[Rfam]
RNA sequence: AGUUCACGGAGCAAUACCCGAUUUCUUGUUCUAUCAAGAGAGUUGGUAUUGCUCCUUUAU
Dot-bracket structure: .....(.(((((((((...(..((((((......))))))..)...))))))))).)...

The record is a 60-nucleotide sequence from Platanus occidentalis, which matches "Plastid-psbA-4 3UTR RNA" in Rfam. The family's consensus secondary structure was predicted with LocARNA. Taxonomically the source falls in Platanus (Eukaryota, Streptophyta, Embryophyta, Platanaceae). Rfam classes the family as a cis-regulatory element.